Overview: The family of this 275-nucleotide RNA from Thermococcus sibiricus is "HgcG RNA (Pab40)". The base pairs follow the family's consensus structure, which was predicted with PFOLD.
[Rfam]
RNA sequence: UUGGUACGUUCGCUAAUAGAUAAGGAUUUAUAAAGGAACACCCUAAUUUAUAAUGCCCCUGCGCGAGGACCCGCCCAAAUAAUGAAGGUGGGGGCGAUGCGGGGGCAACAGCUCGGCCAUAGCGAGGUCCCCACGGAAGGGCCUUCCGCGUUACGGAGCGCAAUGACCGUGGGAAACCCUGGCCGAGUACACUAUUCUGGCCCGCCUGGGUUAAGCCGCUUGAGAGUGCCUUAUGGCUUCAAUGAGAGCGGUCGUUACGGGCGGGCCACAUUUCA
Numbered sequence: 001u002u003g004g005u006a007c008g009u010u011c012g013c014u015a016a017u018a019g020a021u022a023a024g025g026a027u028u029u030a031u032a033a034a035g036g037a038a039c040a041c042c043c044u045a046a047u048u049u050a051u052a053a054u055g056c057c058c059c060u061g062c063g064c065g066a067g068g069a070c071c072c073g074c075c076c077a078a079a080u081a082a083u084g085a086a087g088g089u090g091g092g093g094g095c096g097a098u099g100c101g102g103g104g105g106c107a108a109c110a111g112c113u114c115g116g117c118c119a120u121a122g123c124g125a126g127g128u129c130c131c132c133a134c135g136g137a138a139g140g141g142c143c144u145u146c147c148g149c150g151u152u153a154c155g156g157a158g159c160g161c162a163a164u165g166a167c168c169g170u171g172g173g174a175a176a177c178c179c180u181g182g183c184c185g186a187g188u189a190c191a192c193u194a195u196u197c198u199g200g201c202c203c204g205c206c207u208g209g210g211u212u213a214a215g216c217c218g219c220u221u222g223a224g225a226g227u228g229c230c231u232u233a234u235g236g237c238u239u240c241a242a243u244g245a246g247a248g249c250g251g252u253c254g255u256u257a258c259g260g261g262c263g264g265g266c267c268a269c270a271u272u273u274c275a
Stems, first nucleotide, its partner, number of pairs: 055106008070092006111188008123135002126132002147169001150167004156161001199267010215252007228237002
Gene Ontology term of the family: RNA processing. By type it is an H/ACA-box small nucleolar RNA. The HgcG ncRNA gene was identified computationally in AT-rich hyperthermophiles. The genes were named hgcA through hgcG ('high GC'). The match comes from Rfam's covariance-model search (198 bits).